[Rfam]
Nucleotides: 076
Base pairs, nucleotide, nucleotide: 012044014043015042020076021075023073024072025071026070029037048065049064050063051062052061053060054059
Number, partner (000 for none) and nucleotide at each position: 001000g002000c003000u004000g005000c006000a007000g008000g009000u010000u011000c012044g013000a014043g015042g016000u017000c018000a019000u020076a021075g022000c023073a024072g025071a026070a027000a028000c029037g030000u031000g032000c033000a034000u035000g036000g037029c038000a039000c040000a041000u042015c043014c044012c045000u046000g047000u048065c049064a050063g051062a052061u053060u054059c055000c056000a057000g058000u059054g060053a061052a062051u063050c064049u065048g066000c067000a068000a069000a070026u071025u072024c073023u074000a075021c076020u

This 76-nucleotide sequence from Alligator mississippiensis belongs to the Rfam family "Mammalian CPEB3 ribozyme". The match comes from Rfam's covariance-model search (41 bits).